The family of this 145-nucleotide RNA from Jatropha curcas is "Small nucleolar RNA F1/F2/snoR5a". From the family's description: This family contains F1, F2 and snoR5a sequences, all of which are members of the the H/ACA class of snoRNA that guide the sites of modification of uridines to pseudouridines.

[Rfam]
RNA sequence: AUUUGCCCAUGGUAUCUGAUGUCCAGUCUUGUUUUGUAGCUGGACAUUUCGUUUUGAAGGGCAGAAAAAAAUUGUGAACAGUACUUUGCGACACAGUUAGCUGGCCUUCUAUGAGCUUUCUGUUACUUUUACUCUGUUUACAUUU
Numbered sequence: 001a002u003u004u005g006c007c008c009a010u011g012g013u014a015u016c017u018g019a020u021g022u023c024c025a026g027u028c029u030u031g032u033u034u035u036g037u038a039g040c041u042g043g044a045c046a047u048u049u050c051g052u053u054u055u056g057a058a059g060g061g062c063a064g065a066a067a068a069a070a071a072u073u074g075u076g077a078a079c080a081g082u083a084c085u086u087u088g089c090g091a092c093a094c095a096g097u098u099a100g101c102u103g104g105c106c107u108u109c110u111a112u113g114a115g116c117u118u119u120c121u122g123u124u125a126c127u128u129u130u131a132c133u134c135u136g137u138u139u140a141c142a143u144u145u
Stems, first nucleotide, its partner, number of pairs: 004063005018048010077138005093123004099117004
Annotation: Its family is annotated with RNA processing and nucleolus in the Gene Ontology. The family's RNA type in Rfam is H/ACA-box small nucleolar RNA. It scores 70 bits against the family's covariance model. Pairs were carried over by alignment from the consensus structure, which was predicted with PFOLD. The family has 8 seed sequences and 325 matches in Rfam 15.1.